[Rfam]
RNA: L19-Flavobacteria ribosomal protein leader
RNA sequence: CAACCUCUGACGAGAGUCGUGUAUGUUG
Numbered sequence: 001c002a003a004c005c006u007c008u009g010a011c012g013a014g015a016g017u018c019g020u021g022u023a024u025g026u027u028g
Stems, first nucleotide, its partner, number of pairs: 001028004008023001010020004